[Rfam]
RNA sequence: CUCCUUGCGGUCGCGGUCGCGAAUCCCUAUUUUCAACCUGUCGGGGCAACCCGGCUAUGUCGGUAGACUAUCGGGUGGAAUAAGCAUUUCGGACCCGGGGGGCAGUACCCCGGCGCCUCCACCAUCACUCCAGCCGCGCUGGACUGUUGAUGGGGGCGAAACAGGAUCGACGAGUGCAAUAAAGGCCCGGUUGCCGAUCGGUAUGGAUGCCACCGUGACGGCUCAUUCACACAAGUGCCAACGAUAACGAGGCGCUCGCUAUUGCUGCGUAACUGACGGCCUAACGGUCUGAAGUUAUAAAGCUUAAGCGCGGUCGGACCCCACCGGGCAACAGAAGGGGAUUCC
Numbered sequence: 001c002u003c004c005u006u007g008c009g010g011u012c013g014c015g016g017u018c019g020c021g022a023a024u025c026c027c028u029a030u031u032u033u034c035a036a037c038c039u040g041u042c043g044g045g046g047c048a049a050c051c052c053g054g055c056u057a058u059g060u061c062g063g064u065a066g067a068c069u070a071u072c073g074g075g076u077g078g079a080a081u082a083a084g085c086a087u088u089u090c091g092g093a094c095c096c097g098g099g100g101g102g103c104a105g106u107a108c109c110c111c112g113g114c115g116c117c118u119c120c121a122c123c124a125u126c127a128c129u130c131c132a133g134c135c136g137c138g139c140u141g142g143a144c145u146g147u148u149g150a151u152g153g154g155g156g157c158g159a160a161a162c163a164g165g166a167u168c169g170a171c172g173a174g175u176g177c178a179a180u181a182a183a184g185g186c187c188c189g190g191u192u193g194c195c196g197a198u199c200g201g202u203a204u205g206g207a208u209g210c211c212a213c214c215g216u217g218a219c220g221g222c223u224c225a226u227u228c229a230c231a232c233a234a235g236u237g238c239c240a241a242c243g244a245u246a247a248c249g250a251g252g253c254g255c256u257c258g259c260u261a262u263u264g265c266u267g268c269g270u271a272a273c274u275g276a277c278g279g280c281c282u283a284a285c286g287g288u289c290u291g292a293a294g295u296u297a298u299a300a301a302g303c304u305u306a307a308g309c310g311c312g313g314u315c316g317g318a319c320c321c322c323a324c325c326g327g328g329c330a331a332c333a334g335a336a337g338g339g340g341a342u343u344c345c
Stems, first nucleotide, its partner, number of pairs: 040055005059198005070191007085176003089173003095113005114158007199215004204225003209222003311326004317343002320340003
Alphaproteobacteria transfer-messenger RNA: a 345-nucleotide RNA from Sphingomonas sabuli. By type it is a non-coding RNA gene. The organism belongs to Sphingomonas, within Bacteria.